[Rfam]
RNA: Ascomycota telomerase RNA, nucleotides 204 to 274
RNA sequence: UUUUCGACAGUUCUCUGAUCGAAGUCUUCCGCAAGGAACGAUUGAAAUCAGAACUUAACCCUAAGUAUUUG
Dot-bracket structure: ........(((...((((.............................)))).)))................
Numbered sequence: 001u002u003u004u005c006g007a008c009a010g011u012u013c014u015c016u017g018a019u020c021g022a023a024g025u026c027u028u029c030c031g032c033a034a035g036g037a038a039c040g041a042u043u044g045a046a047a048u049c050a051g052a053a054c055u056u057a058a059c060c061c062u063a064a065g066u067a068u069u070u071g
Stems, first nucleotide, its partner, number of pairs: 009055003015051004